[Rfam]
RNA sequence: GGGGUGUGCUCAGAGCAGGGGCCUGAAGAGUGGUUUCUCUGUUUAUAACACACCCAAUAGGAAUCUGGAGCCAUUGUGAGGAGGGGCACAAGAUGUGUGGCCUUCUUAUGAACAAAUGCCCUACAUGU
Dot-bracket structure: .(((((((....(((((((((((........)))..))))))))....)))))))............(.((...(((...(.(((.((((.....)))).))).....)..)))...)).).......
RNA: Small nucleolar RNA SNORA11